SAM-III riboswitch aptamer (SMK box): an 88-nucleotide RNA from Lactobacillus acetotolerans. Lineage of the source: Bacteria > Bacillati > Bacillota > Lactobacillaceae > Lactobacillus.

RNA sequence: UAUCGGUUCAAGUCCUGAGAGGAUUCACUUAAUAGUGGAGAUGCCUUGUAACCGGAUAGCCAUUGUCUAUAUAGGGGGACUAAAUAUG
Numbered sequence: 001u002a003u004c005g006g007u008u009c010a011a012g013u014c015c016u017g018a019g020a021g022g023a024u025u026c027a028c029u030u031a032a033u034a035g036u037g038g039a040g041a042u043g044c045c046u047u048g049u050a051a052c053c054g055g056a057u058a059g060c061c062a063u064u065g066u067c068u069a070u071a072u073a074g075g076g077g078g079a080c081u082a083a084a085u086a087u088g
Base pairs, nucleotide, nucleotide: 012080013079014078015077016076019047020046021045022044024039025038026037027036028035052075053074

It scores 72 bits against the family's covariance model.